[Rfam]
RNA sequence: CCAAAGGCUCUUUUCAGAGCCACUUAAAUUAUCGGGGAAAGUGGCU
Numbered sequence: 001c002c003a004a005a006g007g008c009u010c011u012u013u014u015c016a017g018a019g020c021c022a023c024u025u026a027a028a029u030u031a032u033c034g035g036g037g038a039a040a041g042u043g044g045c046u
Base pairs, nucleotide, nucleotide: 006021007020008019009018010017011016
A member of the RNA family "Histone 3' UTR stem-loop" from Phocoena sinus, 46 nucleotides long. The source organism's lineage runs through Eukaryota, Bilateria, Chordata, Phocoenidae and Phocoena. A search with the family's covariance model found it, with a score of 35 bits. Rfam's curators write: The mRNAs of metazoan histone genes lack a poly-A tail. 3' end processing occurs at a site between a highly conserved stem-loop (modelled by this family) and a purine rich region around 20 nts downstream (the histone downstream element, or HDE).